[Rfam]
Background: Shown here is a 74-nucleotide RNA, a member of the family "DUF3800-IX RNA". It is one of the family's seed sequences. Rfam's curators write: Actinobacteria, Firmicutes (1 example), Nitrospirae, Proteobacteria, Verrucomicrobia (1 example). It is annotated as a small RNA.
RNA sequence: GUCCUUGUGCGCCGAAUCGUCACCGUAUGGUGUGCUUGGCUGGCAACUCGCCAGCCUAGGCCGCAAGGGCGACC
Numbered sequence: 001g002u003c004c005u006u007g008u009g010c011g012c013c014g015a016a017u018c019g020u021c022a023c024c025g026u027a028u029g030g031u032g033u034g035c036u037u038g039g040c041u042g043g044c045a046a047c048u049c050g051c052c053a054g055c056c057u058a059g060g061c062c063g064c065a066a067g068g069g070c071g072a073c074c
Stems, first nucleotide, its partner, number of pairs: 001070007009062001011061003019035002021032004038056005